[Rfam]
RNA sequence: AGGUAUAACUUCAAAACAACUCGUAUAAUAUUGGGAAUAUGGCCCAUAAGUUUCUACCGGAUGACCAUUGCAAUUAUCCGACUAUGAGUGAGAUCGCAUCCGGA
Numbered sequence: 001a002g003g004u005a006u007a008a009c010u011u012c013a014a015a016a017c018a019a020c021u022c023g024u025a026u027a028a029u030a031u032u033g034g035g036a037a038u039a040u041g042g043c044c045c046a047u048a049a050g051u052u053u054c055u056a057c058c059g060g061a062u063g064a065c066c067a068u069u070g071c072a073a074u075u076a077u078c079c080g081a082c083u084a085u086g087a088g089u090g091a092g093a094u095c096g097c098a099u100c101c102g103g104a
Stems, first nucleotide, its partner, number of pairs: 019089007029049001032046004058080007
Shown here is a 104-nucleotide RNA from Paenibacillus sp. UNCCL117, a member of the family "Purine riboswitch aptamer". Gene Ontology term of the family: purine nucleobase biosynthetic process. Rfam describes the family as follows. Riboswitches are metabolite binding domains within certain messenger RNAs that serve as precision sensors for their corresponding targets. Pairs were carried over by alignment from the consensus structure, which is taken from published work.